[Rfam]
RNA sequence: AUAAUGAUACACCCGUAUGACACGGCUACUCAUAGGAAUGAGAGGGGUGCAAGUCCCGUGG
Numbered sequence: 001a002u003a004a005u006g007a008u009a010c011a012c013c014c015g016u017a018u019g020a021c022a023c024g025g026c027u028a029c030u031c032a033u034a035g036g037a038a039u040g041a042g043a044g045g046g047g048u049g050c051a052a053g054u055c056c057c058g059u060g061g
Base pairs, nucleotide, nucleotide: 012058013025014024015023016022026044027043029042031040032039033038045057046056047055
Background: Shown here is a 61-nucleotide RNA sequence from Lachnospiraceae bacterium A2, a member of the family "pemK RNA". Rfam classes the family as a cis-regulatory element. A search with the family's covariance model found it, with a score of 42 bits.